[Rfam]
RNA sequence: UGUACGCAUGACUGUGAGUCGCUUUGGAUAAAAGCAUCUGCUAAAUGACACAUA
Numbered sequence: 001u002g003u004a005c006g007c008a009u010g011a012c013u014g015u016g017a018g019u020c021g022c023u024u025u026g027g028a029u030a031a032a033a034g035c036a037u038c039u040g041c042u043a044a045a046u047g048a049c050a051c052a053u054a
Stems, first nucleotide, its partner, number of pairs: 013043001014041003021035005

A member of the RNA family "UnaL2 LINE 3' element" from Oncorhynchus tshawytscha, 54 nucleotides long. A search with the family's covariance model found it, with a score of 66 bits. Rfam's curators write: The eel long interspersed element (LINE) UnaL2 and its partner short interspersed element (SINE) share a conserved 3' tail containing a stem-loop that is critical for their retrotransposition. Presumably, the first step of retrotransposition is the recognition of their 3' tails by UnaL2-encoded reverse transcriptase. It is annotated as a cis-regulatory element. The organism belongs to Oncorhynchus, within Eukaryota. Pairs were carried over by alignment from the consensus structure, which is taken from published work.